[Rfam]
RNA sequence: ACAAUGAUACUUCUGCCCAGCCACAGACUCAAGCAAUGGGGGCAGCUUGGAGAGAACCUCGGAGGGGUGAAAUUCCCAUGG
Numbered sequence: 001a002c003a004a005u006g007a008u009a010c011u012u013c014u015g016c017c018c019a020g021c022c023a024c025a026g027a028c029u030c031a032a033g034c035a036a037u038g039g040g041g042g043c044a045g046c047u048u049g050g051a052g053a054g055a056a057c058c059u060c061g062g063a064g065g066g067g068u069g070a071a072a073u074u075c076c077c078a079u080g081g
Stems, first nucleotide, its partner, number of pairs: 012078001013045006046064003050060003065077003
RNA: pemK RNA